Rfam assigns this 136-nucleotide RNA from Pelusios castaneus to the family "Small nucleolar RNA SNORA5".
RNA sequence: CACAGUAGUCUCAAAUCCAGUACUGUCUCCUUGUGGUUGGUACUGACCCAGCUGGCUGCCACAUCCUCAUCUGUAAUUCUUGAGCUCUGCAUCUCUAUUACUGGACCCUGGGGCUAAAAGACUUCUACGAACACCU
Numbered sequence: 001c002a003c004a005g006u007a008g009u010c011u012c013a014a015a016u017c018c019a020g021u022a023c024u025g026u027c028u029c030c031u032u033g034u035g036g037u038u039g040g041u042a043c044u045g046a047c048c049c050a051g052c053u054g055g056c057u058g059c060c061a062c063a064u065c066c067u068c069a070u071c072u073g074u075a076a077u078u079c080u081u082g083a084g085c086u087c088u089g090c091a092u093c094u095c096u097a098u099u100a101c102u103g104g105a106c107c108c109u110g111g112g113g114c115u116a117a118a119a120g121a122c123u124u125c126u127a128c129g130a131a132c133a134c135c136u
Base pairs, nucleotide, nucleotide: 003058004057005056018045019044020043021042022041023040024039025038027036028035073128074127075126076123078121085112086111087110089108
From the family's description: ACA5 is a member of the H/ACA class of snoRNA that guide the sites of modification of uridines to pseudouridines.